[Rfam]
RNA sequence: CCAGUGGGUCGGGCAACCGCGCGUUUAACGUGAGGAAAGUCCGGGCUUCGAAAGGCAGGAUGCCAGUUAACGGCUGGGCGAGGCGACUCGACGGAUUAGUGCCACAGAAAAGGAAACUCCCUCGCUUAGCGAGAGAAAAGCUGAAACGGUGCGGUAAGAGCGCACCAGCGUAUUGGUAACAAUGCGGCUUGGUAAACCCCAUCCGAAGCAAGCGCAAAUAGGAACGCUAUACGGCCGCCUUUCCGUGCGUUCGGGUUGCGUGCUAGAGUUGCAUGGCGACAUGCAAUCGAGAUAAAUGGUUGCUUAUUACAGAACCCGGCUUAUAGACCCACUGAUAUU
Numbered sequence: 001c002c003a004g005u006g007g008g009u010c011g012g013g014c015a016a017c018c019g020c021g022c023g024u025u026u027a028a029c030g031u032g033a034g035g036a037a038a039g040u041c042c043g044g045g046c047u048u049c050g051a052a053a054g055g056c057a058g059g060a061u062g063c064c065a066g067u068u069a070a071c072g073g074c075u076g077g078g079c080g081a082g083g084c085g086a087c088u089c090g091a092c093g094g095a096u097u098a099g100u101g102c103c104a105c106a107g108a109a110a111a112g113g114a115a116a117c118u119c120c121c122u123c124g125c126u127u128a129g130c131g132a133g134a135g136a137a138a139a140g141c142u143g144a145a146a147c148g149g150u151g152c153g154g155u156a157a158g159a160g161c162g163c164a165c166c167a168g169c170g171u172a173u174u175g176g177u178a179a180c181a182a183u184g185c186g187g188c189u190u191g192g193u194a195a196a197c198c199c200c201a202u203c204c205g206a207a208g209c210a211a212g213c214g215c216a217a218a219u220a221g222g223a224a225c226g227c228u229a230u231a232c233g234g235c236c237g238c239c240u241u242u243c244c245g246u247g248c249g250u251u252c253g254g255g256u257u258g259c260g261u262g263c264u265a266g267a268g269u270u271g272c273a274u275g276g277c278g279a280c281a282u283g284c285a286a287u288c289g290a291g292a293u294a295a296a297u298g299g300u301u302g303c304u305u306a307u308u309a310c311a312g313a314a315c316c317c318g319g320c321u322u323a324u325a326g327a328c329c330c331a332c333u334g335a336u337a338u339u
Base pairs, nucleotide, nucleotide: 002334003333004332005331006330007329008328009327010326011324012304013303014302015301016300017299018298020032021031022030023029024028037322038321039320041319042318043317044316045315046208047207048206049205053240054239055238056237058204059203060202061201062200063077064076065075066074067073078092079090080089081088082087093199094198099197100196101193102192103191117140118139120135121133122132123131124130125129148166149165150164151163152162153161168188169186170185171184172183173182174181175180212261213260214259215258222252223251224250225249226248227247231246232245233244234243268287269286270285271284272283273282274281275280
A member of the RNA family "Bacterial RNase P class A" from Eggerthella sp. CAG:368, 339 nucleotides long. It scores 287 bits against the family's covariance model. Gene Ontology terms of the family: ribonuclease P activity, tRNA processing and dimeric ribonuclease P complex. The base pairs follow the family's consensus structure, which is taken from published work.